Shown here is a 122-nucleotide RNA from Rhizobium album, a member of the family "Alphaproteobacterial ar14". Gene Ontology term of the family: biological process involved in symbiotic interaction. About the family: Smr14C2 was renamed NfeR1 (Nodule Formation Efficiency RNA) highly expressed in salt stress and during the symbiotic interaction on legume roots. For this family Rfam cites "A conserved alpha-proteobacterial small RNA contributes to osmoadaptation and symbiotic efficiency of rhizobia on legume roots" (Robledo et al., Environ Microbiol, 2017). The source organism's lineage runs through Bacteria, Pseudomonadota, Alphaproteobacteria, Rhizobiaceae and Rhizobium.
[Rfam]
RNA sequence: ACUCAUCGAAGCGGCUACUCCUCCUCCCAACGCCGCUCGAUCCGACUGACAACACUCCUCCUCCCAGUUGUCAGUCUCCUAUUAGAAACCCACCGGAUCUCCUCCCCCGGUGGGUUUCUUGC
Number, nucleotide and partner (000 for none) at each position: 001a000002c000003u000004c000005a000006u000007c039008g038009a037010a000011g036012c035013g034014g033015c032016u000017a000018c000019u000020c000021c000022u000023c000024c000025u000026c000027c000028c000029a000030a000031c000032g015033c014034c013035g012036c011037u009038c008039g007040a000041u000042c000043c000044g076045a075046c074047u073048g072049a071050c070051a069052a068053c067054a000055c000056u000057c000058c000059u000060c000061c000062u000063c000064c000065c000066a000067g053068u052069u051070g050071u049072c048073a047074g046075u045076c044077u000078c000079c000080u000081a000082u000083u000084a000085g000086a117087a116088a115089c114090c113091c112092a111093c110094c109095g108096g107097a000098u000099c000100u000101c000102c000103u000104c000105c000106c000107c096108c095109g094110g093111u092112g091113g090114g089115u088116u087117u086118c000119u000120u000121g000122c000